[Rfam]
RNA sequence: ACGUCCCGCCUCGUGAUCGUCUUCUCACCUUUCACGUCGGCGGGCGGAUGAACGGAAGACCCCUGCGAGGACGUGACUCGCAGGGGUCUUCC
Number, nucleotide and partner (000 for none) at each position: 001a000002c046003g045004u000005c044006c043007c042008g041009c040010c039011u000012c000013g035014u034015g033016a032017u000018c000019g029020u000021c000022u000023u000024c000025u000026c000027a000028c000029c019030u000031u000032u016033c015034a014035c013036g000037u000038c000039g010040g009041c008042g007043g006044g005045c003046g002047g000048a000049u000050g000051a000052a000053c000054g092055g091056a090057a089058g088059a087060c086061c085062c084063c083064u082065g081066c080067g079068a078069g077070g000071a000072c000073g000074u000075g000076a000077c069078u068079c067080g066081c065082a064083g063084g062085g061086g060087u059088c058089u057090u056091c055092c054
RNA: sodF sRNA